[Rfam]
RNA sequence: AUAGCAUCACUAUAUUGUGCACUUGGCUUGAAAGUAAGUCUCUUGUUUACGACCUCCAUUACGUUGCCUCCUAGUACGACUUCGUCCUGUAGUUUCUAAAUAUCAGUCUCAUUUUUCGCUAUUUCAGCCUUAGCGGGCUAAUCUUUUAUCUACAGGAAUAUAUUAUGUCUAAUACAGUAACGGGUACAGUAAAGUGGUUUAACGAAGCUAAAGGUUUUGGCUUCAUCGAGCAAUCAUCAGGUCCAGACGUUUUUGCACAUUUCAGUGCAAUCUCUGGUGGUGGCUUCAAGACUCUGACUGAAGGUCAACGCGUUGAGUUUACUUUGGGCCAAGGCGCCAAAGGUCCUCAAGCUGAGAACAUCGUAGGCCUGUAAUGAUUGGCGGGUAUUCCCGCUAACUCAUUAUCUGGUUUAUACAAAAAAGGCCAGCCCUUCGGGGUUGGCCUUUUUU
Numbered sequence: 001a002u003a004g005c006a007u008c009a010c011u012a013u014a015u016u017g018u019g020c021a022c023u024u025g026g027c028u029u030g031a032a033a034g035u036a037a038g039u040c041u042c043u044u045g046u047u048u049a050c051g052a053c054c055u056c057c058a059u060u061a062c063g064u065u066g067c068c069u070c071c072u073a074g075u076a077c078g079a080c081u082u083c084g085u086c087c088u089g090u091a092g093u094u095u096c097u098a099a100a101u102a103u104c105a106g107u108c109u110c111a112u113u114u115u116u117c118g119c120u121a122u123u124u125c126a127g128c129c130u131u132a133g134c135g136g137g138c139u140a141a142u143c144u145u146u147u148a149u150c151u152a153c154a155g156g157a158a159u160a161u162a163u164u165a166u167g168u169c170u171a172a173u174a175c176a177g178u179a180a181c182g183g184g185u186a187c188a189g190u191a192a193a194g195u196g197g198u199u200u201a202a203c204g205a206a207g208c209u210a211a212a213g214g215u216u217u218u219g220g221c222u223u224c225a226u227c228g229a230g231c232a233a234u235c236a237u238c239a240g241g242u243c244c245a246g247a248c249g250u251u252u253u254u255g256c257a258c259a260u261u262u263c264a265g266u267g268c269a270a271u272c273u274c275u276g277g278u279g280g281u282g283g284c285u286u287c288a289a290g291a292c293u294c295u296g297a298c299u300g301a302a303g304g305u306c307a308a309c310g311c312g313u314u315g316a317g318u319u320u321a322c323u324u325u326g327g328g329c330c331a332a333g334g335c336g337c338c339a340a341a342g343g344u345c346c347u348c349a350a351g352c353u354g355a356g357a358a359c360a361u362c363g364u365a366g367g368c369c370u371g372u373a374a375u376g377a378u379u380g381g382c383g384g385g386u387a388u389u390c391c392c393g394c395u396a397a398c399u400c401a402u403u404a405u406c407u408g409g410u411u412u413a414u415a416c417a418a419a420a421a422a423g424g425c426c427a428g429c430c431c432u433u434c435g436g437g438g439u440u441g442g443c444c445u446u447u448u449u450u
Stems, first nucleotide, its partner, number of pairs: 004020004009015001026231002029228002034223001037222004041214004052209001054207002057204001059202002063200001066198003070167001072165005086156007095111001127138003169184002173180001234327003239323002246254002259313002262310001266307002268304001273296001276293001279292001281290001332347003336344003348371002351368001352366003356362001374414003420447012
Dot-bracket structure: ...((((.(.....).)))).....((.((...(..((((((((.......(.((.(.((..(..(((.(.(((((.........(((((((..(...............)...............(((......)))...........)))))))....))))).).((..(......)..))...........))).))).).)).).))))....)))))...)).))..(((..((.....((.....))....((.(...(((....(..(..(.(........).))..).......).))..).))........)).)))....(((.(((...))))))((.((((.(.....).))).).))..(((...................................))).....((((((((((((....))))))))))))...